[Rfam]
RNA: mir-568 microRNA precursor family
Organism: Molossus molossus
RNA sequence: GUAUACACUAUAUUAUGUAUAAAUGUAUACACACUUCCUAGAUAUCCACAUAUACAGUGUAUAUAUUAUACAUGUAUAGGUGUGUGUGU
Numbered sequence: 001g002u003a004u005a006c007a008c009u010a011u012a013u014u015a016u017g018u019a020u021a022a023a024u025g026u027a028u029a030c031a032c033a034c035u036u037c038c039u040a041g042a043u044a045u046c047c048a049c050a051u052a053u054a055c056a057g058u059g060u061a062u063a064u065a066u067u068a069u070a071c072a073u074g075u076a077u078a079g080g081u082g083u084g085u086g087u088g089u
Stems, first nucleotide, its partner, number of pairs: 003083004008079006015073008024065009039052002043048001